The family of this 137-nucleotide sequence from Paenibacillus bovis is "SAM riboswitch aptamer (S box leader)".

RNA sequence: AUCUUAUCAAGAGCAGGUGGAGGGACUAGCCCUAUGAAGCCCGGCAACCGGCGGUCAUAUACCGUACGGUGCUAAUUCUAGCAGAGAUACAGGUACAUCCUACGAUGAAGUAUCUGGUAUCUGCUGACAGAUGAGAG
Numbered sequence: 001a002u003c004u005u006a007u008c009a010a011g012a013g014c015a016g017g018u019g020g021a022g023g024g025a026c027u028a029g030c031c032c033u034a035u036g037a038a039g040c041c042c043g044g045c046a047a048c049c050g051g052c053g054g055u056c057a058u059a060u061a062c063c064g065u066a067c068g069g070u071g072c073u074a075a076u077u078c079u080a081g082c083a084g085a086g087a088u089a090c091a092g093g094u095a096c097a098u099c100c101u102a103c104g105a106u107g108a109a110g111u112a113u114c115u116g117g118u119a120u121c122u123g124c125u126g127a128c129a130g131a132u133g134a135g136a137g
Stems, first nucleotide, its partner, number of pairs: 002136007013042001016041003022032003026081004043073004048069002051065004077129001082126003
The match comes from Rfam's covariance-model search (71 bits). The source organism's lineage runs through Bacteria, Bacillati, Bacillota, Paenibacillaceae and Paenibacillus.